[Rfam]
RNA: Guanidine-II riboswitch aptamer (mini-ykkC)
RNA sequence: GUGGGGACGACCCCACCGCUCCGGUUCAUUCAGGGACGGCCCUG
Numbered sequence: 001g002u003g004g005g006g007a008c009g010a011c012c013c014c015a016c017c018g019c020u021c022c023g024g025u026u027c028a029u030u031c032a033g034g035g036a037c038g039g040c041c042c043u044g
Base pairs, nucleotide, nucleotide: 001016002015003014004013005012006011031044032043033042034041035040